mir-9424 microRNA precursor family: a 68-nucleotide RNA from Nematostella vectensis.
[Rfam]
RNA sequence: UUAAAGACUGCCUCGAUAAACCAGCUUUACAGAUAUCUGUAUAGUUGGCUCAUCGAGGCAGUCUUAAA
Numbered sequence: 001u002u003a004a005a006g007a008c009u010g011c012c013u014c015g016a017u018a019a020a021c022c023a024g025c026u027u028u029a030c031a032g033a034u035a036u037c038u039g040u041a042u043a044g045u046u047g048g049c050u051c052a053u054c055g056a057g058g059c060a061g062u063c064u065u066a067a068a
Stems, first nucleotide, its partner, number of pairs: 004065014019050001021048006028041005